[Rfam]
RNA sequence: UAAGCCUUCAAGGGGAGCUAGUGAAGCUAGCUGAGAGUAAGCCUGAUGCUUAGACCCUCUGAACCUGUUAGUUAAUACUGACGUAGGGAUGGUGGCUUUUUUGAUG
Number, nucleotide and partner (000 for none) at each position: 001u000002a000003a000004g000005c000006c094007u000008u092009c091010a090011a058012g057013g056014g055015g000016a000017g031018c030019u029020a028021g027022u000023g000024a000025a000026g000027c021028u020029a019030g018031c017032u000033g000034a000035g000036a000037g000038u052039a051040a050041g049042c048043c000044u000045g000046a000047u000048g042049c041050u040051u039052a038053g000054a000055c014056c013057c012058u011059c000060u000061g000062a000063a000064c087065c086066u085067g084068u081069u080070a079071g078072u000073u000074a000075a000076u000077a000078c071079u070080g069081a068082c000083g000084u067085a066086g065087g064088g000089a000090u010091g009092g008093u000094g006095g000096c000097u000098u000099u000100u000101u000102u000103g000104a000105u000106g000

Shown here is a 106-nucleotide RNA sequence from Streptohalobacillus salinus, a member of the family "TPP riboswitch aptamer (THI element)". It scores 69 bits against the family's covariance model.